A member of the RNA family "Small nucleolar RNA SNORA29" from Xenopus laevis, 137 nucleotides long. Pairs were carried over by alignment from the consensus structure, which was predicted with PFOLD. The family's RNA type in Rfam is H/ACA-box small nucleolar RNA. Its family is annotated with RNA processing and nucleolus in the Gene Ontology. Rfam's curators write: ACA29 is a member of the H/ACA class of snoRNA that guide the sites of modification of uridines to pseudouridines.
RNA sequence: AUUCCCAUUUUAGUACCGCUUUUUUCGAUUCCCAGAAUAAGCGGCUAUGCUAAUGGGAAAGAAUAAUCUCUGCCAUAGUUUGAAGGAGUGUUACAUUUAUAUAACGUCUCCUACAUGAAAAGGCAGAACAGAAAUUU
Numbered sequence: 001a002u003u004c005c006c007a008u009u010u011u012a013g014u015a016c017c018g019c020u021u022u023u024u025u026c027g028a029u030u031c032c033c034a035g036a037a038u039a040a041g042c043g044g045c046u047a048u049g050c051u052a053a054u055g056g057g058a059a060a061g062a063a064u065a066a067u068c069u070c071u072g073c074c075a076u077a078g079u080u081u082g083a084a085g086g087a088g089u090g091u092u093a094c095a096u097u098u099a100u101a102u103a104a105c106g107u108c109u110c111c112u113a114c115a116u117g118a119a120a121a122g123g124c125a126g127a128a129c130a131g132a133a134a135u136u137u
Stems, first nucleotide, its partner, number of pairs: 004057004016044004072124003090112001093109001